The family of this 276-nucleotide RNA from Nannospalax galili is "Mason-Pfizer monkey virus packaging signal". The organism belongs to Nannospalax, within Eukaryota. About the family: This family represents a group of sequences that are related to the Mason-Pfizer monkey virus (MPMV) packaging signal. The match comes from Rfam's covariance-model search (159 bits).
[Rfam]
RNA sequence: UGGCGCCCAAUGUGGCGACUAGAUACUGGGGGCACAUAGUGAGGGAGAACGGAAGAAAAGGAGUGCACUCGCUAAGUUUCAAGGAAUUUGGAGUCGCACCGCGGGAGCCUGCUGCGACCGAACCGAAAGUAAAUCACCGUCUGAUCAUGGGGCAAGCAUUGAGCCAGCAUCAUAUUUAUGUAAAGCAAUUAAGGGAUGCUUUAAAGGCAAGAGGAGUAAAGGUUAAGACUGCAGAUUUGUUUCAUUUCUUUGAUUUUGUAAAGGAUGUCUGUCUUU
Number, nucleotide and partner (000 for none) at each position: 001u000002g000003g000004c000005g000006c031007c030008c029009a000010a000011u000012g026013u025014g024015g000016c000017g000018a000019c000020u000021a000022g000023a000024u014025a013026c012027u000028g000029g008030g007031g006032g000033c000034a000035c000036a000037u000038a000039g000040u048041g000042a000043g000044g000045g000046a000047g000048a040049a000050c000051g000052g000053a000054a000055g000056a000057a000058a000059a000060g000061g000062a000063g000064u000065g000066c000067a000068c000069u000070c000071g000072c000073u000074a000075a000076g000077u000078u000079u000080c000081a000082a000083g000084g000085a000086a130087u129088u127089u126090g000091g000092a000093g000094u122095c120096g119097c000098a000099c000100c116101g115102c114103g113104g112105g000106a000107g000108c000109c000110u000111g000112c104113u103114g102115c101116g100117a000118c000119c096120g095121a000122a094123c000124c000125g000126a089127a088128a000129g087130u086131a000132a000133a000134u000135c000136a000137c000138c152139g000140u151141c150142u149143g148144a000145u000146c000147a000148u143149g142150g141151g140152g138153c000154a000155a000156g000157c000158a000159u000160u203161g202162a201163g199164c198165c000166a000167g000168c000169a000170u000171c000172a000173u000174a000175u000176u000177u000178a000179u000180g000181u000182a000183a000184a000185g000186c000187a000188a000189u000190u000191a000192a000193g000194g000195g000196a000197u000198g164199c163200u000201u162202u161203a160204a000205a000206g000207g000208c000209a000210a000211g251212a250213g249214g248215a247216g246217u000218a000219a000220a238221g237222g236223u235224u234225a000226a000227g000228a000229c000230u000231g000232c000233a000234g224235a223236u222237u221238u220239g000240u000241u000242u000243c000244a000245u000246u216247u215248c214249u213250u212251u211252g000253a000254u000255u000256u000257u000258g000259u000260a000261a276262a275263g274264g273265a272266u271267g000268u000269c000270u000271g266272u265273c264274u263275u262276u261